[Rfam]
RNA: 23S methyl RNA motif
Organism: Liquorilactobacillus cacaonum
RNA sequence: CGGUUUUUAGUGAUUAUCGAUUUUUUCGUUAGUCAUUACAUAAUUGUACUUCAUUUAACGUAGCUGUUCGCCGUACCCAUACCGAACAGUUACGCUUUUUU
Numbered sequence: 001c002g003g004u005u006u007u008u009a010g011u012g013a014u015u016a017u018c019g020a021u022u023u024u025u026u027c028g029u030u031a032g033u034c035a036u037u038a039c040a041u042a043a044u045u046g047u048a049c050u051u052c053a054u055u056u057a058a059c060g061u062a063g064c065u066g067u068u069c070g071c072c073g074u075a076c077c078c079a080u081a082c083c084g085a086a087c088a089g090u091u092a093c094g095c096u097u098u099u100u101u
Stems, first nucleotide, its partner, number of pairs: 002045004007040001008038009018028002057096001059094012073082003